[Rfam]
Nucleotides: 072
Stems, first nucleotide, its partner, number of pairs: 007066003010062005017056001023049002026047002029044003
Number, partner (000 for none) and nucleotide at each position: 001000g002000g003000a004000g005000g006000u007066a008065a009064g010062u011061g012060g013059a014058g015000g016000a017056g018000g019000g020000g021000u022000c023049u024048c025000c026047u027046c028000u029044c030043u031042u032000u033000g034000a035000a036000u037000c038000a039000c040000u041000a042031a043030a044029g045000u046027g047026a048024g049023a050000u051000u052000c053000a054000a055000c056017u057000c058014c059013u060012c061011c062010a063000a064009c065008u066007u067000c068000u069000c070000u071000c072000c
Record summary:
This 72-nucleotide RNA sequence from Haemaphysalis longicornis belongs to the Rfam family "mir-1175 microRNA precursor family". The base pairs follow the family's consensus structure, which was predicted with RNAalifold. NCBI's taxonomy places the organism under Eukaryota, Panarthropoda, Parasitiformes, Haemaphysalinae, Haemaphysalis. The match comes from Rfam's covariance-model search (65 bits).